[Rfam]
RNA sequence: GCUUUCAACAUCCCCGUUCUGGAUUUGAGCUGUUUCAACAGGUGACGCCUGUGAAGCUGUCUCUUGCAGAGCUGAAAGC
Numbered sequence: 001g002c003u004u005u006c007a008a009c010a011u012c013c014c015c016g017u018u019c020u021g022g023a024u025u026u027g028a029g030c031u032g033u034u035u036c037a038a039c040a041g042g043u044g045a046c047g048c049c050u051g052u053g054a055a056g057c058u059g060u061c062u063c064u065u066g067c068a069g070a071g072c073u074g075a076a077a078g079c
Stems, first nucleotide, its partner, number of pairs: 001079007016072006027063003031059001032057006
nadA riboswitch: a 79-nucleotide sequence.